[Rfam]
RNA: Small nucleolar RNA SNORD34
Organism: Turnera subulata
Nucleotides: 086
Base pairs, nucleotide, nucleotide: 001086002085004083005082006081007080
Number, partner (000 for none) and nucleotide at each position: 001086g002085g003000a004083a005082g006081c007080c008000u009000a010000g011000g012000a013000u014000g015000g016000u017000u018000u019000u020000u021000a022000a023000a024000g025000a026000u027000u028000u029000g030000c031000c032000u033000a034000c035000a036000u037000u038000g039000u040000c041000u042000g043000a044000a045000u046000g047000u048000g049000u050000u051000a052000u053000g054000u055000c056000a057000g058000a059000g060000a061000c062000a063000a064000c065000g066000u067000g068000a069000a070000u071000u072000a073000g074000u075000u076000c077000u078000g079000a080007g081006g082005c083004u084000u085002c086001c